The family of this 115-nucleotide RNA sequence from Kribbella sp. VKM Ac-2500 is "SAM (S-adenosyl methionine) riboswitch aptamer". The organism belongs to Kribbella, within Bacteria. Gene Ontology terms of the family: S-adenosylmethionine metabolic process and regulation of gene expression.

Nucleotides: 115
Base pairs, nucleotide, nucleotide: 001078002077003076004075009038011037012036013035014034015033016032021030022029039065040064041063044061045060046059048056049055081104082103083102084101085099086098087097088096089095
Number, partner (000 for none) and nucleotide at each position: 001078g002077g003076u004075c005000a006000u007000g008000a009038g010000u011037g012036c013035c014034a015033g016032c017000g018000c019000g020000a021030a022029g023000c024000c025000c026000c027000g028000g029022c030021u031000u032016g033015c034014u035013g036012g037011c038009c039065g040064g041063c042000a043000a044061c045060c046059c047000u048056c049055c050000u051000c052000c053000g054000c055049g056048g057000u058000g059046g060045g061044g062000u063041g064040c065039c066000c067000c068000g069000g070000g071000u072000g073000a074000g075004g076003a077002c078001c079000c080000g081104g082103c083102c084101g085099u086098u087097c088096g089095g090000a091000u092000a093000c094000c095089c096088c097087g098086a099085a100000u101084c102083g103082g104081c105000a106000a107000g108000u109000g110000c111000g112000g113000a114000c115000c